Background
A member of the RNA family "Streptomyces RNA 2736" from Streptomyces sp. SAJ15, 56 nucleotides long. About the family: Identified by deep sequencing of transcriptome at the end of exponential growth phase.
RNA sequence: CGCCCGGCCGGAUCCCGUGGGGGGAAUCCGCACCGGGGAACGGGAAGCGCCCCGCC
Numbered sequence: 001c002g003c004c005c006g007g008c009c010g011g012a013u014c015c016c017g018u019g020g021g022g023g024g025a026a027u028c029c030g031c032a033c034c035g036g037g038g039a040a041c042g043g044g045a046a047g048c049g050c051c052c053c054g055c056c
Stems, first nucleotide, its partner, number of pairs: 003037005009030005014024003042052003
The match comes from Rfam's covariance-model search (60 bits). Lineage of the source: Bacteria > Bacillati > Actinomycetota > Actinomycetes > Streptomyces.